[Rfam]
RNA sequence: AACGUCCGUCGUCGAUCUCUCCCUCCCCUGGAGCGAUCCCCGGAUCCGGAGCCCCUCCCCAGGCUCCCGAUCUCCAGCCCCGCCGGCACCCCCUGCCUGCGGGGCUUUUUA
Number, nucleotide and partner (000 for none) at each position: 001a000002a000003c000004g013005u000006c011007c000008g000009u000010c000011g006012u000013c004014g038015a037016u036017c035018u000019c033020u032021c031022c030023c000024u000025c000026c000027c000028c000029u000030g022031g021032a020033g019034c000035g017036a016037u015038c014039c000040c000041c000042g073043g072044a071045u070046c069047c000048g067049g066050a065051g064052c063053c062054c000055c000056u000057c000058c000059c000060c000061a000062g053063g052064c051065u050066c049067c048068c000069g046070a045071u044072c043073u042074c000075c000076a106077g105078c104079c103080c102081c101082g100083c099084c000085g097086g096087c095088a094089c000090c000091c000092c000093c000094u088095g087096c086097c085098u000099g083100c082101g081102g080103g079104g078105c077106u076107u000108u000109u000110u000111a000
Rfam assigns this 111-nucleotide sequence from Pseudoluteimonas lycopersici to the family "Xanthomonadaceae sRNA sX13". By type it is a small RNA. The base pairs follow the family's consensus structure, which was predicted with CMfinder. For this family Rfam cites "Genome-wide transcriptome analysis of the plant pathogen Xanthomonas identifies sRNAs with putative virulence functions" (Schmidtke et al., Nucleic Acids Res, 2011).